[Rfam]
RNA sequence: GUGCCAUGAUGUUAAACUGUCAACACAUCAUUCUGAAUAAUUUUGUGGAGACUUUGUGAACUGAGCACC
Numbered sequence: 001g002u003g004c005c006a007u008g009a010u011g012u013u014a015a016a017c018u019g020u021c022a023a024c025a026c027a028u029c030a031u032u033c034u035g036a037a038u039a040a041u042u043u044u045g046u047g048g049a050g051a052c053u054u055u056g057u058g059a060a061c062u063g064a065g066c067a068c069c
Stems, first nucleotide, its partner, number of pairs: 001068004

This 69-nucleotide RNA from Oreocharis arfaki belongs to the Rfam family "Small nucleolar RNA SNORD63". snoRNA U63 is found in both humans and mice. Gene Ontology terms of the family: RNA processing and nucleolus. By type it is a C/D-box small nucleolar RNA.